[Rfam]
RNA sequence: ACGCCACGGCGUCGGAGGCCUGUCAUGGGCCGAAGAGGCGGGGGUGGUGCCGUGUCGGCGCAGCACCACCCCCGCCGU
Numbered sequence: 001a002c003g004c005c006a007c008g009g010c011g012u013c014g015g016a017g018g019c020c021u022g023u024c025a026u027g028g029g030c031c032g033a034a035g036a037g038g039c040g041g042g043g044g045u046g047g048u049g050c051c052g053u054g055u056c057g058g059c060g061c062a063g064c065a066c067c068a069c070c071c072c073c074g075c076c077g078u
Base pairs, nucleotide, nucleotide: 001012002011003010004009018031019029020028021027038075039074040073041072042071043070044069045068046067047066048065049064050063052061053060054059
RNA: Streptomyces RNA 6106
Organism: Streptomyces fuscichromogenes